[Rfam]
RNA sequence: CUCUUAUCAAGAGAGGUGGAGGGAAAGGGCCCAAUGAAACCCGGCAACCUGUUUCUGUAACAAGGUGCCAAUUCCUGUAGAUUUAGUUCUACAAGAUGAGAG
Numbered sequence: 001c002u003c004u005u006a007u008c009a010a011g012a013g014a015g016g017u018g019g020a021g022g023g024a025a026a027g028g029g030c031c032c033a034a035u036g037a038a039a040c041c042c043g044g045c046a047a048c049c050u051g052u053u054u055c056u057g058u059a060a061c062a063a064g065g066u067g068c069c070a071a072u073u074c075c076u077g078u079a080g081a082u083u084u085a086g087u088u089c090u091a092c093a094a095g096a097u098g099a100g101a102g
Stems, first nucleotide, its partner, number of pairs: 001102008013042001015041003021032003027076003043069004048065002050062004073094001078091004
RNA: SAM riboswitch aptamer (S box leader)
Organism: Clostridium sp. DSM 8431